[Rfam]
RNA sequence: UGCAAGUUCAAGGCCGUAGCAGAAGCACUCAUGGUGCAGUUCUGUCAGAUUCCAAAGAAUCUGCAAAUUCUGCU
Dot-bracket structure: ...........[[[...((((((((((.......))).]]]....(((((((....)))))))....)))))))
Mammalian CPEB3 ribozyme: a 74-nucleotide sequence from Alligator mississippiensis. The organism belongs to Alligator, within Eukaryota. On this family, see Salehi-Ashtiani et al., Science 2006: "A genomewide search for ribozymes reveals an HDV-like sequence in the human CPEB3 gene". The base pairs follow the family's consensus structure, which is taken from published work.